[Rfam]
RNA sequence: GACGGCGAAGGUAAAAACACGAUCCCGUCGGGUAGUCGGGAUGCGGGCGGCCCCGUUGCGGCAAGCCCGUCAGUAACCUGCCUCUUGGGUUGUCCCUCCUUCACGUAAGCGCG
Numbered sequence: 001g002a003c004g005g006c007g008a009a010g011g012u013a014a015a016a017a018c019a020c021g022a023u024c025c026c027g028u029c030g031g032g033u034a035g036u037c038g039g040g041a042u043g044c045g046g047g048c049g050g051c052c053c054c055g056u057u058g059c060g061g062c063a064a065g066c067c068c069g070u071c072a073g074u075a076a077c078c079u080g081c082c083u084c085u086u087g088g089g090u091u092g093u094c095c096c097u098c099c100u101u102c103a104c105g106u107a108a109g110c111g112c113g
Stems, first nucleotide, its partner, number of pairs: 005104001007102005022042006043070006080090004
The family of this 113-nucleotide sequence from Slackia equolifaciens is "azaaromatic riboswitch aptamer (yjdF RNA)". The organism belongs to Slackia, within Bacteria. A search with the family's covariance model found it, with a score of 64 bits.